[Rfam]
RNA sequence: UUUGGUAUGUGUAACUGGCGCUAACGUGGAGAACCACGAGGAAGCACAUAUUCAUACUGUCGUACGCCUGGGCAAAGUGU
Numbered sequence: 001u002u003u004g005g006u007a008u009g010u011g012u013a014a015c016u017g018g019c020g021c022u023a024a025c026g027u028g029g030a031g032a033a034c035c036a037c038g039a040g041g042a043a044g045c046a047c048a049u050a051u052u053c054a055u056a057c058u059g060u061c062g063u064a065c066g067c068c069u070g071g072g073c074a075a076a077g078u079g080u
Base pairs, nucleotide, nucleotide: 004052005051006050007049008048009047010046011045012044015041016040017068018067019066020065026037027036028035029034058074059073060072061071
The record is an 80-nucleotide RNA sequence from Paenibacillus sp. FSL H8-0548, which matches "ZMP/ZTP riboswitch aptamer (pfl RNA motif)" in Rfam. It scores 57 bits against the family's covariance model. The family's consensus secondary structure is taken from published work.